[Rfam]
RNA sequence: UAAUUUAUUUAUAGCAUAUUUUAAUUUAAUUAUAAUAAAAUCACACUUGACUUCACUGUACAAAACCACUUAUUAUCAUCAUAGUGACCAUUGCUUAAUUGAGGAAAAAAUCC
Number, nucleotide and partner (000 for none) at each position: 001u000002a000003a000004u000005u110006u109007a000008u106009u105010u000011a000012u102013a000014g100015c000016a000017u000018a096019u000020u000021u000022u000023a092024a091025u090026u000027u087028a000029a085030u084031u083032a082033u081034a000035a000036u000037a000038a000039a000040a000041u000042c000043a000044c000045a000046c000047u000048u000049g000050a000051c000052u000053u000054c000055a000056c000057u000058g000059u000060a000061c000062a000063a000064a000065a000066c000067c000068a000069c000070u000071u000072a000073u000074u000075a000076u000077c000078a000079u000080c000081a033082u032083a031084g030085u029086g000087a027088c000089c000090a025091u024092u023093g000094c000095u000096u018097a000098a000099u000100u014101g000102a012103g000104g000105a009106a008107a000108a000109a006110a005111u000112c000113c000
RNA: MIR480 microRNA precursor family